[Rfam]
Overview
A member of the RNA family "Mycobacterium sRNA Ms_IGR-8" from Mycobacteroides abscessus, 62 nucleotides long. Taxonomically the source falls in Mycobacteroides abscessus (Bacteria, Actinomycetes, Mycobacteriales, Mycobacteroides). The base pairs follow the family's consensus structure. Rfam classes the family as a small RNA.
RNA sequence: CUUUCGGCUGCGCCGAGUGUGAAGCUAUUGCGGGAAAUCCGGGGAAAUCUCGCAAUAGCUUC
Dot-bracket structure: ....................((((((((((((((...(.....)...).)))))))))))))